[Rfam]
RNA: Glycine riboswitch aptamer
Organism: Candidatus Thiodiazotropha endoloripes
RNA sequence: UAGGUCGACUCUGGAGAGUGGUGUAACAACACCCACCGACGGGGCAGGCGCGCAGCAGGUUGCCUAAAUCACCUUGUAUGCAUGCGCCAAACUCUCAGGUUUUGGACAGAGGGGCGGCG
Numbered sequence: 001u002a003g004g005u006c007g008a009c010u011c012u013g014g015a016g017a018g019u020g021g022u023g024u025a026a027c028a029a030c031a032c033c034c035a036c037c038g039a040c041g042g043g044g045c046a047g048g049c050g051c052g053c054a055g056c057a058g059g060u061u062g063c064c065u066a067a068a069u070c071a072c073c074u075u076g077u078a079u080g081c082a083u084g085c086g087c088c089a090a091a092c093u094c095u096c097a098g099g100u101u102u103u104g105g106a107c108a109g110a111g112g113g114g115c116g117g118c119g
Base pairs, nucleotide, nucleotide: 006114009111010110011109012108013107020033021032022031023030035100036099037098038096039095042094043093044092048087049086050085051084052083